[Rfam]
RNA sequence: UCUAGAACUCAAGAUAUGGGCUGAACACUAAAUAGUAUCUGGGCUGUAGGACAGAUUCGGACUUCUCCGUUGUUGCUAUAAUUUGGACAUUAAAACGGCCUUCUUAGAUCUUGAUGUCCAAAUGAAAGUUGUAGGCCUAUGUCUUACGGAAUUUGUGU
Numbered sequence: 001u002c003u004a005g006a007a008c009u010c011a012a013g014a015u016a017u018g019g020g021c022u023g024a025a026c027a028c029u030a031a032a033u034a035g036u037a038u039c040u041g042g043g044c045u046g047u048a049g050g051a052c053a054g055a056u057u058c059g060g061a062c063u064u065c066u067c068c069g070u071u072g073u074u075g076c077u078a079u080a081a082u083u084u085g086g087a088c089a090u091u092a093a094a095a096c097g098g099c100c101u102u103c104u105u106a107g108a109u110c111u112u113g114a115u116g117u118c119c120a121a122a123u124g125a126a127a128g129u130u131g132u133a134g135g136c137c138u139a140u141g142u143c144u145u146a147c148g149g150a151a152u153u154u155g156u157g158u
Stems, first nucleotide, its partner, number of pairs: 002157001005154003008149002011145010021134003025130001027129003035123002041119003048112004054105002059100002062098002069091001072088003
Rfam assigns this 158-nucleotide sequence from Populus alba to the family "MIR2912 microRNA precursor family". Pairs were carried over by alignment from the consensus structure, which was predicted with RNAalifold. Its family is annotated with miRNA-mediated post-transcriptional gene silencing and RISC complex in the Gene Ontology. NCBI's taxonomy places the organism under Eukaryota, Viridiplantae, Streptophytina, Saliceae, Populus.